[Rfam]
RNA: Streptomyces RNA 4115
RNA sequence: GCGUGGGUCGGCCCGCUGCACAGGUUCAGUGGGCUGGGGGACACCGCCGCCUCAUUCCCCGCGGGCGGCGGUCCGGGCCGGGAGGACCGAACGCGCUUCCCGGCCCGGC
Numbered sequence: 001g002c003g004u005g006g007g008u009c010g011g012c013c014c015g016c017u018g019c020a021c022a023g024g025u026u027c028a029g030u031g032g033g034c035u036g037g038g039g040g041a042c043a044c045c046g047c048c049g050c051c052u053c054a055u056u057c058c059c060c061g062c063g064g065g066c067g068g069c070g071g072u073c074c075g076g077g078c079c080g081g082g083a084g085g086a087c088c089g090a091a092c093g094c095g096c097u098u099c100c101c102g103g104c105c106c107g108g109c
Base pairs, nucleotide, nucleotide: 002107006074007073009036010035011034012033013032014031015030016029017028018027037042044071045070046069047068048067049066050065051064052063075106076105077104078103079102080101081100082099083098084097085096088095089094